[Rfam]
A member of the RNA family "TPP riboswitch aptamer (THI element)" from Thermoanaerobacteraceae bacterium SP2, 107 nucleotides long.
RNA sequence: UAUGUCCACUAGGGGAGCGGAUAGCUGAGAAAGCAAGGGCAAACCCUUGCUGACCCUUUAAACCUGAUCUAGGUAAUGCUAGCGCAGGGAAGUGGCUUGAUAAUAAG
Dot-bracket structure: .....(((((((((..((.....))......((((((((....))))))))..)))).....((((..((((......))))..))))..)))))............
Numbered sequence: 001u002a003u004g005u006c007c008a009c010u011a012g013g014g015g016a017g018c019g020g021a022u023a024g025c026u027g028a029g030a031a032a033g034c035a036a037g038g039g040c041a042a043a044c045c046c047u048u049g050c051u052g053a054c055c056c057u058u059u060a061a062a063c064c065u066g067a068u069c070u071a072g073g074u075a076a077u078g079c080u081a082g083c084g085c086a087g088g089g090a091a092g093u094g095g096c097u098u099g100a101u102a103a104u105a106a107g
Stems, first nucleotide, its partner, number of pairs: 006095005011057004017025002032051008063088004069082004
Taxonomically the source falls in Thermoanaerobacteraceae (Bacteria, Bacillati, Bacillota, Thermoanaerobacterales). The match comes from Rfam's covariance-model search (76 bits).